[Rfam]
RNA: mir-15 microRNA precursor family
RNA sequence: CCAGGGUGCGCUCUAGCAGCACAUCAUGUUUUGCAGAUAUGUGCUGAAUCACUCCAAAUCAUUAUGUGCUGCCACCGUGAGCCCUGG
Numbered sequence: 001c002c003a004g005g006g007u008g009c010g011c012u013c014u015a016g017c018a019g020c021a022c023a024u025c026a027u028g029u030u031u032u033g034c035a036g037a038u039a040u041g042u043g044c045u046g047a048a049u050c051a052c053u054c055c056a057a058a059u060c061a062u063u064a065u066g067u068g069c070u071g072c073c074a075c076c077g078u079g080a081g082c083c084c085u086g087g
Stems, first nucleotide, its partner, number of pairs: 001087006014074001016072009026062003030058004035053002